[Rfam]
RNA sequence: GAGUUAAUCCUUGUAGCGAGGUUAAGGGAGAGACACCCGGAGCCGUAGCGAAAGCGAGUCUGAAGAGGGCGAAGAGUUGCAAGGAUUAGACACGAAACCAGGUGAGCUACCCAUGGCCAGGGUGAAGCGGGUGUAACGACCUGUGGAGGCCCGGACCUACUAAUGUUGCAAAAUUAGGGGAUGAGCUGUGGGUAGAGGUGAUAUGCCAAACGAACCUGGAGAUAGCUUGUU
Numbered sequence: 001g002a003g004u005u006a007a008u009c010c011u012u013g014u015a016g017c018g019a020g021g022u023u024a025a026g027g028g029a030g031a032g033a034c035a036c037c038c039g040g041a042g043c044c045g046u047a048g049c050g051a052a053a054g055c056g057a058g059u060c061u062g063a064a065g066a067g068g069g070c071g072a073a074g075a076g077u078u079g080c081a082a083g084g085a086u087u088a089g090a091c092a093c094g095a096a097a098c099c100a101g102g103u104g105a106g107c108u109a110c111c112c113a114u115g116g117c118c119a120g121g122g123u124g125a126a127g128c129g130g131g132u133g134u135a136a137c138g139a140c141c142u143g144u145g146g147a148g149g150c151c152c153g154g155a156c157c158u159a160c161u162a163a164u165g166u167u168g169c170a171a172a173a174u175u176a177g178g179g180g181a182u183g184a185g186c187u188g189u190g191g192g193u194a195g196a197g198g199u200g201a202u203a204u205g206c207c208a209a210a211c212g213a214a215c216c217u218g219g220a221g222a223u224a225g226c227u228u229g230u231u
Stems, first nucleotide, its partner, number of pairs: 005088013020044004026038003048055002058070004091229002094226001098219006107195011118183001120152004127144006156180003160177005197207003